c-di-GMP-I riboswitch aptamer: a 90-nucleotide RNA sequence from Paenibacillus sabuli. The match comes from Rfam's covariance-model search (72 bits). The source organism's lineage runs through Bacteria, Bacillati, Caryophanales, Paenibacillaceae and Paenibacillus. The family's consensus secondary structure is taken from published work.
RNA sequence: GGUUGAAAACGGCAAACCCGAACGAAAGACGGGGGCGCAAAGCCACGGGUCUACGUGCGUGCGAACGCAUAAGAUAGCCGGGCUGCCAAC
Numbered sequence: 001g002g003u004u005g006a007a008a009a010c011g012g013c014a015a016a017c018c019c020g021a022a023c024g025a026a027a028g029a030c031g032g033g034g035g036c037g038c039a040a041a042g043c044c045a046c047g048g049g050u051c052u053a054c055g056u057g058c059g060u061g062c063g064a065a066c067g068c069a070u071a072a073g074a075u076a077g078c079c080g081g082g083c084u085g086c087c088a089a090c
Stems, first nucleotide, its partner, number of pairs: 012038002017033004023028001041084004046080003049075003056069004